RNA sequence: AUUCUGCAAAAGGCCACAGCAGAAACACUCACAGUGCGGCAUGUCAGAUUCCAACAAAAUCUGCAAAUUCUGCU
Numbered sequence: 001a002u003u004c005u006g007c008a009a010a011a012g013g014c015c016a017c018a019g020c021a022g023a024a025a026c027a028c029u030c031a032c033a034g035u036g037c038g039g040c041a042u043g044u045c046a047g048a049u050u051c052c053a054a055c056a057a058a059a060u061c062u063g064c065a066a067a068u069u070c071u072g073c074u
Stems, first nucleotide, its partner, number of pairs: 013040003018074007026036002045063006

Mammalian CPEB3 ribozyme: a 74-nucleotide RNA from Alligator sinensis. The organism belongs to Alligator, within Eukaryota. The match comes from Rfam's covariance-model search (42 bits).